[Rfam]
RNA sequence: GCAUGCAUGGCUCCUUGCAUGCCAUCCGAGAAGGCCACCUAUUUUCCGAUGAUGGGCUUUGCAAAUGGCAUACAGGGAGCCAGGCAUAC
Dot-bracket structure: (.((((.(((((((.((.((((((...(.................................)...)))))).)).))))))).)))).)
Numbered sequence: 001g002c003a004u005g006c007a008u009g010g011c012u013c014c015u016u017g018c019a020u021g022c023c024a025u026c027c028g029a030g031a032a033g034g035c036c037a038c039c040u041a042u043u044u045u046c047c048g049a050u051g052a053u054g055g056g057c058u059u060u061g062c063a064a065a066u067g068g069c070a071u072a073c074a075g076g077g078a079g080c081c082a083g084g085c086a087u088a089c
Stems, first nucleotide, its partner, number of pairs: 001089001003087004008082007016074002019071006028062001